Rfam assigns this 80-nucleotide RNA sequence from Kutzneria viridogrisea to the family "SAH (S-adenosyl-L-homocysteine) riboswitch aptamer".

RNA sequence: CAGGUCGAGAGGCGCUGCAACGGACCAAGGCGGUCCGCCACGCUCGACCGGACCCACCCGGACAAGGGCGCCUCCGAUUC
Numbered sequence: 001c002a003g004g005u006c007g008a009g010a011g012g013c014g015c016u017g018c019a020a021c022g023g024a025c026c027a028a029g030g031c032g033g034u035c036c037g038c039c040a041c042g043c044u045c046g047a048c049c050g051g052a053c054c055c056a057c058c059c060g061g062a063c064a065a066g067g068g069c070g071c072c073u074c075c076g077a078u079u080c
Stems, first nucleotide, its partner, number of pairs: 003049006021037006